[Rfam]
The family of this 75-nucleotide sequence from Caenorhabditis elegans is "tRNA". Rfam describes the family as follows. Transfer RNA (tRNA) molecules are approximately 80 nucleotides in length. Rfam classes the family as a transfer RNA.
RNA sequence: GGCCGCGUGGCCUAAUGGAUAAGGCAUCAGACUUCGAAUCUAUGGGGAUUGCAGGUUCGAUCCCUGCCGUGGUCG
Number, nucleotide and partner (000 for none) at each position: 001g074002g073003c072004c071005g070006c069007g068008u000009g000010g025011c024012c023013u022014a000015a000016u000017g000018g000019a000020u000021a000022a013023g012024g011025c010026a000027u045028c044029a041030g040031a039032c000033u000034u000035c000036g000037a000038a000039u031040c030041u029042a000043u000044g028045g027046g000047g000048a000049u000050u000051g067052c066053a065054g064055g063056u000057u000058c000059g000060a000061u000062c000063c055064c054065u053066g052067c051068c007069g006070u005071g004072g003073u002074c001075g000